A member of the RNA family "ZMP/ZTP riboswitch aptamer (pfl RNA motif)" from Massilia cavernae, 109 nucleotides long.
[Rfam]
RNA sequence: UUCGUCUCACAUGACUGGCGAAAAACCGCGGCAGCAAUGCUUGUCGGCGAAAGGUGGGCACCCACCGGGGAAUGUGAGAUUUCAAACGCCGUUCGCCUGGGCAGCCCAC
Numbered sequence: 001u002u003c004g005u006c007u008c009a010c011a012u013g014a015c016u017g018g019c020g021a022a023a024a025a026c027c028g029c030g031g032c033a034g035c036a037a038u039g040c041u042u043g044u045c046g047g048c049g050a051a052a053g054g055u056g057g058g059c060a061c062c063c064a065c066c067g068g069g070g071a072a073u074g075u076g077a078g079a080u081u082u083c084a085a086a087c088g089c090c091g092u093u094c095g096c097c098u099g100g101g102c103a104g105c106c107c108a109c
Base pairs, nucleotide, nucleotide: 004080005079006078007077008076009075010074011073012072015069016068017097018096019095020094021093054065055064056063057062088102089101090100
Description
The family has 185 seed sequences and 3,295 matches in Rfam 15.1. Lineage of the source: Bacteria > Betaproteobacteria > Burkholderiales > Oxalobacteraceae > Massilia. Rfam links the family to the GO terms one-carbon metabolic process and regulation of purine nucleotide biosynthetic process.